Notes:
A member of the RNA family "SAM riboswitch aptamer (S box leader)" from Gracilibacillus halotolerans, 115 nucleotides long. A search with the family's covariance model found it, with a score of 85 bits. NCBI's taxonomy places the organism under Bacteria, Bacillota, Bacilli, Bacillaceae, Gracilibacillus. Gene Ontology term of the family: regulation of gene expression.

[Rfam]
RNA sequence: CUCUUAUUAAGAGCGGCAGAGGGAUUAGGCCCUAUGAAGCCCGGCAACCGACAAUUUAAUUUAUAUAAAUUGUAAAGGUGCUACAUCCUACAGGUGAUUACCUGAGAGAUAAGAG
Numbered sequence: 001c002u003c004u005u006a007u008u009a010a011g012a013g014c015g016g017c018a019g020a021g022g023g024a025u026u027a028g029g030c031c032c033u034a035u036g037a038a039g040c041c042c043g044g045c046a047a048c049c050g051a052c053a054a055u056u057u058a059a060u061u062u063a064u065a066u067a068a069a070u071u072g073u074a075a076a077g078g079u080g081c082u083a084c085a086u087c088c089u090a091c092a093g094g095u096g097a098u099u100a101c102c103u104g105a106g107a108g109a110u111a112a113g114a115g
Base pairs, nucleotide, nucleotide: 001115002114003113004112005111006110007109008108013042015041016040017039021032022031023030026090027089028088029087043082044081045080046079048078049077051073052072053071054070055069056068057067058066086107091104092103093102094101095100